[Rfam]
RNA sequence: CCCUCAAUUGAUGUAGCAGCAUUUCAUUGUAUGUGUAUAUAAUAUAUACAUACAAUGGAAUGCUGCUACAUCUACUGAGGG
Numbered sequence: 001c002c003c004u005c006a007a008u009u010g011a012u013g014u015a016g017c018a019g020c021a022u023u024u025c026a027u028u029g030u031a032u033g034u035g036u037a038u039a040u041a042a043u044a045u046a047u048a049c050a051u052a053c054a055a056u057g058g059a060a061u062g063c064u065g066c067u068a069c070a071u072c073u074a075c076u077g078a079g080g081g
Stems, first nucleotide, its partner, number of pairs: 001081006013069012026056011
The record is an 81-nucleotide sequence from Hydra vulgaris, which matches "mir-15 microRNA precursor family" in Rfam. NCBI's taxonomy places the organism under Eukaryota, Eumetazoa, Cnidaria, Hydroidolina, Hydra. For this family Rfam cites "Identification of novel genes coding for small expressed RNAs" (Lagos-Quintana et al., Science, 2001). This family represents the related mir-15a and mir-15b sequences. In humans miR-15a and miR-16 are clustered within 0.5 kb at 13q14. This region has been shown to be deleted in more than half of B cell chronic lymphocytic leukaemias (CLL). Both miR-15a and miR-16 are deleted or down-regulated in more than two thirds of CLL cases. The mature sequence is excised from the 5' arm of the hairpin.